[Rfam]
RNA sequence: CCUGCGGUAAGACGGAAAGACCCCGUGCACCUUAACUGCAGCUUUACAUUGACCGAAGCUUGGAGCUGUAUAGAGUAGGUGGUAGGCGAUGACUUCUGGGCGCUAGCUCAGAUCAAGCCCCAAGUGAAACACCACCCUGUUUCGGGCUUCGUUCUGACUGAGGCUAUGUCAACCUUAGCCCAAGACAGUGUAUGGUGGGUAGUUUGACUGGGGCGGUCGCCUCCAAAAAAGUAACGGAGGCGUGCGAAGGUAAACUCAAAACGGUUGGAAACCGUUUGUAGAGCGCAAUGGUAAAAGUUUGCCUAACUGCAAGACGCACGUGUCAAGCAGAGACGAAAGUCGGCCAUAGUGAUCCGGUGGUUCCGCGUGGAAGGGCCAUCGCUCAACGGAUAAAAGGUACGCCGGGGAUAACAGGCUAAUAACUCCUGAGAGCUCUUAUCGACGGGGUUGUUUGGCACCUCGAUGUCGACUCAUCGCAUCCUGGGGCUGAAGCAGGUCCCAAGGGUAUGGCUGUUCGCCAUUUAAAGCGGUACGUGAGUUGGGUUCAGAACGUCGCGAGACAGUUCGGUCCCUAUCUACCGUAGGUGGA
Numbered sequence: 001c002c003u004g005c006g007g008u009a010a011g012a013c014g015g016a017a018a019g020a021c022c023c024c025g026u027g028c029a030c031c032u033u034a035a036c037u038g039c040a041g042c043u044u045u046a047c048a049u050u051g052a053c054c055g056a057a058g059c060u061u062g063g064a065g066c067u068g069u070a071u072a073g074a075g076u077a078g079g080u081g082g083u084a085g086g087c088g089a090u091g092a093c094u095u096c097u098g099g100g101c102g103c104u105a106g107c108u109c110a111g112a113u114c115a116a117g118c119c120c121c122a123a124g125u126g127a128a129a130c131a132c133c134a135c136c137c138u139g140u141u142u143c144g145g146g147c148u149u150c151g152u153u154c155u156g157a158c159u160g161a162g163g164c165u166a167u168g169u170c171a172a173c174c175u176u177a178g179c180c181c182a183a184g185a186c187a188g189u190g191u192a193u194g195g196u197g198g199g200u201a202g203u204u205u206g207a208c209u210g211g212g213g214c215g216g217u218c219g220c221c222u223c224c225a226a227a228a229a230a231g232u233a234a235c236g237g238a239g240g241c242g243u244g245c246g247a248a249g250g251u252a253a254a255c256u257c258a259a260a261a262c263g264g265u266u267g268g269a270a271a272c273c274g275u276u277u278g279u280a281g282a283g284c285g286c287a288a289u290g291g292u293a294a295a296a297g298u299u300u301g302c303c304u305a306a307c308u309g310c311a312a313g314a315c316g317c318a319c320g321u322g323u324c325a326a327g328c329a330g331a332g333a334c335g336a337a338a339g340u341c342g343g344c345c346a347u348a349g350u351g352a353u354c355c356g357g358u359g360g361u362u363c364c365g366c367g368u369g370g371a372a373g374g375g376c377c378a379u380c381g382c383u384c385a386a387c388g389g390a391u392a393a394a395a396g397g398u399a400c401g402c403c404g405g406g407g408a409u410a411a412c413a414g415g416c417u418a419a420u421a422a423c424u425c426c427u428g429a430g431a432g433c434u435c436u437u438a439u440c441g442a443c444g445g446g447g448u449u450g451u452u453u454g455g456c457a458c459c460u461c462g463a464u465g466u467c468g469a470c471u472c473a474u475c476g477c478a479u480c481c482u483g484g485g486g487c488u489g490a491a492g493c494a495g496g497u498c499c500c501a502a503g504g505g506u507a508u509g510g511c512u513g514u515u516c517g518c519c520a521u522u523u524a525a526a527g528c529g530g531u532a533c534g535u536g537a538g539u540u541g542g543g544u545u546c547a548g549a550a551c552g553u554c555g556c557g558a559g560a561c562a563g564u565u566c567g568g569u570c571c572c573u574a575u576c577u578a579c580c581g582u583a584g585g586u587g588g589a
Base pairs, nucleotide, nucleotide: 001585002584003583004582005581006580007579008578010577011576012575014572015571022406023405024404025403027402028401029398030397031396032395033394035203036202037201038200042195043194045192046191047190048189051154052153054151055150056149057148058147059146060145061144062143063142064141065140066139068137078136079135080134081133082132085119086118087117095112096111097110098109099108100107101106159182160181162180163179164178165177166176206218207217208216209215219241220240221239222238223237224236242387244344245343250302251301252300253299254298255297256282257281259277260276261275262274263273264272283292284291307330308329309328310327313324314323315322332341333340334339355381356380357379358378359377360376361375363374364373415456416455417454419453420450421449422448423447424446425445426444430440431439467542468540469539470538471537472534473531474530475529476528477527480505481504483500484499485498486497487496488495507521508520509519510518511517548566549565550564551563552561553560554559

The record is a 589-nucleotide part of an RNA from Candidatus Hodgkinia cicadicola, which matches "Bacterial large subunit ribosomal RNA" in Rfam. Rfam's curators put it in the seed alignment. Rfam 15.1 lists 51,934 matches to the family in 10,816 species. The base pairs follow the family's consensus structure, which is taken from published work.